A member of the RNA family "mir-515 microRNA precursor family" from Nomascus leucogenys, 88 nucleotides long. Its family is annotated with RISC complex and miRNA-mediated post-transcriptional gene silencing in the Gene Ontology. A reference for the family is Bentwich et al. (2005), "Identification of hundreds of conserved and nonconserved human microRNAs", Nat Genet. The family is grouped with related families in Rfam's "mir-290 clan". A search with the family's covariance model found it, with a score of 77 bits. The organism belongs to Nomascus, within Eukaryota. The family has 181 seed sequences and 1,056 matches in Rfam 15.1.
RNA sequence: UCUCAUGCUGUGACCCUCCAAAGGGAAGUGCUUUCUGUUUGUUUUCUCUCAAACAAAGUGCCUCCCUUUAGAGUGUUACCGUUUGGGA
Numbered sequence: 001u002c003u004c005a006u007g008c009u010g011u012g013a014c015c016c017u018c019c020a021a022a023g024g025g026a027a028g029u030g031c032u033u034u035c036u037g038u039u040u041g042u043u044u045u046c047u048c049u050c051a052a053a054c055a056a057a058g059u060g061c062c063u064c065c066c067u068u069u070a071g072a073g074u075g076u077u078a079c080c081g082u083u084u085g086g087g088a
Stems, first nucleotide, its partner, number of pairs: 001088005007082002010079005016073003020069007028061007038053002